[Rfam]
Source information: The family of this 79-nucleotide RNA from Apteryx australis is "Small nucleolar RNA SNORD87". The base pairs follow the family's consensus structure. Taxonomically the source falls in Apteryx (Eukaryota, Dipnotetrapodomorpha, Amniota, Theropoda). Its family is annotated with RNA processing and nucleolus in the Gene Ontology. It scores 53 bits against the family's covariance model. It is annotated as a C/D-box small nucleolar RNA.
RNA sequence: ACUGGCAUAAUGAUGAUCUUUUUGCCGUUUACCCAUCUGACUGGUUAUUGAUGUGUAUGGUUAAAUCUGAAAUGCCAGU
Number, nucleotide and partner (000 for none) at each position: 001a079002c078003u077004g076005g075006c074007a073008u000009a000010a000011u000012g000013a000014u000015g000016a000017u000018c000019u000020u000021u000022u000023u000024g000025c000026c000027g000028u000029u000030u000031a000032c000033c000034c000035a000036u000037c000038u000039g000040a000041c000042u000043g000044g000045u000046u000047a000048u000049u000050g000051a000052u000053g000054u000055g000056u000057a000058u000059g000060g000061u000062u000063a000064a000065a000066u000067c000068u000069g000070a000071a000072a000073u007074g006075c005076c004077a003078g002079u001